[Rfam]
RNA sequence: CUGGCUCCGGUUCACGCCUCUCGCAGGGAGGGGCGACCCGGCGGCC
Numbered sequence: 001c002u003g004g005c006u007c008c009g010g011u012u013c014a015c016g017c018c019u020c021u022c023g024c025a026g027g028g029a030g031g032g033g034c035g036a037c038c039c040g041g042c043g044g045c046c
Stems, first nucleotide, its partner, number of pairs: 003046003007041004015035008

Record summary: A member of the RNA family "L31-Actinobacteria ribosomal protein leader", 46 nucleotides long. The base pairs follow the family's consensus structure, which is taken from published work. The family's RNA type in Rfam is cis-regulatory leader. A reference for the family is Eckert and Weinberg (2020), "Discovery of 20 novel ribosomal leader candidates in bacteria and archaea", BMC Microbiol. Rfam's curators put it in the seed alignment.